[Rfam]
RNA sequence: GGCUUUCUUCGCGGCGGAGCUCGACCGCCCACAGCGCUGAGCGUGAAAUACAUCGACGCCCACAAGGGCGAGUUCGGGGUCGAGCCGAUCUGCGAGGCACUGCAGGUCGCCCCG
Numbered sequence: 001g002g003c004u005u006u007c008u009u010c011g012c013g014g015c016g017g018a019g020c021u022c023g024a025c026c027g028c029c030c031a032c033a034g035c036g037c038u039g040a041g042c043g044u045g046a047a048a049u050a051c052a053u054c055g056a057c058g059c060c061c062a063c064a065a066g067g068g069c070g071a072g073u074u075c076g077g078g079g080u081c082g083a084g085c086c087g088a089u090c091u092g093c094g095a096g097g098c099a100c101u102g103c104a105g106g107u108c109g110c111c112c113c114g
Base pairs, nucleotide, nucleotide: 013029014028015027016026017025075114076113077112078111079110086109087108089106090105091104092103093102094101
A member of the RNA family "ALIL pseudoknot" from Streptomyces sp. NP160, 114 nucleotides long. Rfam links the family to the GO term positive regulation of translational frameshifting. The match comes from Rfam's covariance-model search (76 bits). For this family Rfam cites "Apical loop-internal loop RNA pseudoknots: a new type of stimulator of -1 translational frameshifting in bacteria" (Mazauric et al., J Biol Chem, 2008).